[Rfam]
A member of the RNA family "Small nucleolar RNA R160" from Cajanus cajan, 79 nucleotides long. The base pairs follow the family's consensus structure. From the family's description: snoR160 is a C/D box small nucleolar RNA, which acts as a methylation guide for 25S ribosomal RNA in plants. snoR160 has been alternatively named snoZ270 in rice. For this family Rfam cites "The high diversity of snoRNAs in plants: identification and comparative study of 120 snoRNA genes from Oryza sativa" (Chen et al., Nucleic Acids Res, 2003). The organism belongs to Cajanus, within Eukaryota.
RNA sequence: AGCAAAGUGAUGAGUUUUGAAUAUCUGAAUAUGAUGUGGAUUCCUUAUUUCAAAUGGUCUUCAAAGUUCUCUGAUUGCU
Numbered sequence: 001a002g003c004a005a006a007g008u009g010a011u012g013a014g015u016u017u018u019g020a021a022u023a024u025c026u027g028a029a030u031a032u033g034a035u036g037u038g039g040a041u042u043c044c045u046u047a048u049u050u051c052a053a054a055u056g057g058u059c060u061u062c063a064a065a066g067u068u069c070u071c072u073g074a075u076u077g078c079u
Base pairs, nucleotide, nucleotide: 001079002078003077004076005075
The match comes from Rfam's covariance-model search (73 bits).